[Rfam]
RNA sequence: AGGAAAAAGUUAGGCAAGACUUUGGCAAAACUUGGAUGCAGGCUUUACCAAAGUUUAGCCAAAGUUUCAUCUAACUCUUGCCA
Numbered sequence: 001a002g003g004a005a006a007a008a009g010u011u012a013g014g015c016a017a018g019a020c021u022u023u024g025g026c027a028a029a030a031c032u033u034g035g036a037u038g039c040a041g042g043c044u045u046u047a048c049c050a051a052a053g054u055u056u057a058g059c060c061a062a063a064g065u066u067u068c069a070u071c072u073a074a075c076u077c078u079u080g081c082c083a
Stems, first nucleotide, its partner, number of pairs: 002082002005079002008076007017067005024060002028056006

Rfam assigns this 83-nucleotide RNA sequence from Caenorhabditis elegans to the family "mir-266 microRNA precursor family". Taxonomically the source falls in Caenorhabditis (Eukaryota, Nematoda, Rhabditina, Rhabditoidea). A search with the family's covariance model found it, with a score of 81 bits. Rfam links the family to the GO terms miRNA-mediated post-transcriptional gene silencing and RISC complex.